[Rfam]
A member of the RNA family "PhotoRC-II RNA", 95 nucleotides long.

RNA sequence: UAACUGAAUAUCUGCUCCCGCUAACCAAGACCUAUGGGAGGAUAAAUUACGUCUUUUUAUCCAGUAGUGAGGGAUUACUGGAAAUAAGUUUCGCU
Numbered sequence: 001u002a003a004c005u006g007a008a009u010a011u012c013u014g015c016u017c018c019c020g021c022u023a024a025c026c027a028a029g030a031c032c033u034a035u036g037g038g039a040g041g042a043u044a045a046a047u048u049a050c051g052u053c054u055u056u057u058u059a060u061c062c063a064g065u066a067g068u069g070a071g072g073g074a075u076u077a078c079u080g081g082a083a084a085u086a087a088g089u090u091u092c093g094c095u
Stems, first nucleotide, its partner, number of pairs: 015040005027055005060082007